[Rfam]
RNA: MIR6217 microRNA precursor family
Organism: Miscanthus lutarioriparius
RNA sequence: UGGCCAUAGAAUAACUUAUUAUGUGGCCACUUUGAGUUACGAUAAUUACCAUGCUAAUUUACGAGAUUACAGUAACUCUUUACUAAGUGAUUUACUAUAACAUUAUCGUAAAUAUCUCCGUGAGUUGCAGUAAUACAAGUAUCGUAAAUAUAUAUUUAUGUUAUUGUAAAUUUGUACAAAUAUUAUCGUAAAUUAAGGUGGCUAUAGAAUAAGUUAUUUUAUGACCA
Numbered sequence: 001u002g003g004c005c006a007u008a009g010a011a012u013a014a015c016u017u018a019u020u021a022u023g024u025g026g027c028c029a030c031u032u033u034g035a036g037u038u039a040c041g042a043u044a045a046u047u048a049c050c051a052u053g054c055u056a057a058u059u060u061a062c063g064a065g066a067u068u069a070c071a072g073u074a075a076c077u078c079u080u081u082a083c084u085a086a087g088u089g090a091u092u093u094a095c096u097a098u099a100a101c102a103u104u105a106u107c108g109u110a111a112a113u114a115u116c117u118c119c120g121u122g123a124g125u126u127g128c129a130g131u132a133a134u135a136c137a138a139g140u141a142u143c144g145u146a147a148a149u150a151u152a153u154a155u156u157u158a159u160g161u162u163a164u165u166g167u168a169a170a171u172u173u174g175u176a177c178a179a180a181u182a183u184u185a186u187c188g189u190a191a192a193u194u195a196a197g198g199u200g201g202c203u204a205u206a207g208a209a210u211a212a213g214u215u216a217u218u219u220u221a222u223g224a225c226c227a
Base pairs, nucleotide, nucleotide: 001227002226003225005223006222007221008220009219010218011217012216013215014214015213016212017211018210019209020208022206023205024204025203026202027201028200029199030198031197032196033195037191038190039189040188041187042186043185044184045183046182052176053175054174056172057171058170059169060168061167062166065165066164067163069161070160071159072157074155079148080147081146082145083144087142088141089140091138092137093132094131095130096129098127099126100125101124103122108116